Shown here is a 160-nucleotide RNA from Eolophus roseicapilla, a member of the family "Small nucleolar RNA SNORD97". Lineage of the source: Eukaryota > Teleostomi > Saurischia > Neognathae > Eolophus. The base pairs follow the family's consensus structure, which was predicted with WAR. Rfam links the family to the GO terms RNA processing and nucleolus.
RNA sequence: UUGCCCAAUGAUUAUAGCAAGACGCGUUAUUAAGAGGACUAAUGCUGGAACUCUUUUUCUCCUCCUCUUCCUCCUCCUUUGUCCCUUUCUCUUUUACCUUACCCCUCACUUUCCUUGGGGUAUCCAGCGUCCUAUGAGCAAGACUGAGAUAUGAGGGCAA
Numbered sequence: 001u002u003g004c005c006c007a008a009u010g011a012u013u014a015u016a017g018c019a020a021g022a023c024g025c026g027u028u029a030u031u032a033a034g035a036g037g038a039c040u041a042a043u044g045c046u047g048g049a050a051c052u053c054u055u056u057u058u059c060u061c062c063u064c065c066u067c068u069u070c071c072u073c074c075u076c077c078u079u080u081g082u083c084c085c086u087u088u089c090u091c092u093u094u095u096a097c098c099u100u101a102c103c104c105c106u107c108a109c110u111u112u113c114c115u116u117g118g119g120g121u122a123u124c125c126a127g128c129g130u131c132c133u134a135u136g137a138g139c140a141a142g143a144c145u146g147a148g149a150u151a152u153g154a155g156g157g158c159a160a
Base pairs, nucleotide, nucleotide: 001160002159003158004157005156006155035054036053037052040049

For this family Rfam cites "Identification of 13 novel human modification guide RNAs" (Vitali et al., Nucleic Acids Res, 2003).